A member of the RNA family "TPP riboswitch aptamer (THI element)" from Alteribacillus bidgolensis, 103 nucleotides long. The family's consensus secondary structure is taken from published work.
RNA sequence: GCUUGACACUAGGGGUGCUGUUAUACAGCUGAGAAGGGCGGUUGUCCUAACCCUAUAACCUGAACUAGUUAAUACUAGCGUAGGGAAGUGUGAGCGGAUAUAA
Numbered sequence: 001g002c003u004u005g006a007c008a009c010u011a012g013g014g015g016u017g018c019u020g021u022u023a024u025a026c027a028g029c030u031g032a033g034a035a036g037g038g039c040g041g042u043u044g045u046c047c048u049a050a051c052c053c054u055a056u057a058a059c060c061u062g063a064a065c066u067a068g069u070u071a072a073u074a075c076u077a078g079c080g081u082a083g084g085g086a087a088g089u090g091u092g093a094g095c096g097g098a099u100a101u102a103a
Base pairs, nucleotide, nucleotide: 006091007090008089009088010087011054012053013052014051017029018028019027020026021025036047037046038045039044059084060083061082062081065078066077067076068075